[Rfam]
RNA sequence: UUUGCAAGUUCAAGGCCAUAGCAGAAGUGCUCAUGGAGUAACCCUGUCAGAUUCCAGCAGAUCUGCAAAUUCUGCU
Dot-bracket structure: .............[[....(((((((((.........))..]]....((((((......))))))....)))))))
Shown here is a 76-nucleotide RNA from Alligator sinensis, a member of the family "Mammalian CPEB3 ribozyme". Its family is annotated with RNA nuclease activity in the Gene Ontology. Taxonomically the source falls in Alligator (Eukaryota, Gnathostomata, Sarcopterygii, Alligatoridae).